[Rfam]
RNA: Actinobacteria sRNA Ms_IGR-5
RNA sequence: ACACGGGAAAGGAGGUGGUCCAGCUUUGAGUAGCUACAGGACUCGUGAGGUGGCUGCCCGCUAGGCGGCUGUCAUCGACUGAUCUUCGUCGAGACCAUCAGGCUCGAUGGAAUGGUCGAGGCCGUGUGUCAGCGGCCCGGCGAAUUCCAAGCAGCCACCCGAGCCCCGGGGGAUGCCGGUUAGUCCGACCGGCCCCGCGCACCCGCGCGGAACCCCGGGGUUCGUCAUGU
Numbered sequence: 001a002c003a004c005g006g007g008a009a010a011g012g013a014g015g016u017g018g019u020c021c022a023g024c025u026u027u028g029a030g031u032a033g034c035u036a037c038a039g040g041a042c043u044c045g046u047g048a049g050g051u052g053g054c055u056g057c058c059c060g061c062u063a064g065g066c067g068g069c070u071g072u073c074a075u076c077g078a079c080u081g082a083u084c085u086u087c088g089u090c091g092a093g094a095c096c097a098u099c100a101g102g103c104u105c106g107a108u109g110g111a112a113u114g115g116u117c118g119a120g121g122c123c124g125u126g127u128g129u130c131a132g133c134g135g136c137c138c139g140g141c142g143a144a145u146u147c148c149a150a151g152c153a154g155c156c157a158c159c160c161g162a163g164c165c166c167c168g169g170g171g172g173a174u175g176c177c178g179g180u181u182a183g184u185c186c187g188a189c190c191g192g193c194c195c196c197g198c199g200c201a202c203c204c205g206c207g208c209g210g211a212a213c214c215c216c217g218g219g220g221u222u223c224g225u226c227a228u229g230u
Base pairs, nucleotide, nucleotide: 014058015057016056017055018054019053059142060141061140062139064137065136066135068133069132070131071130073128074127075126160224161223162222163221164220165219166218167217168216169215170214171213175193176192177191178190179189180188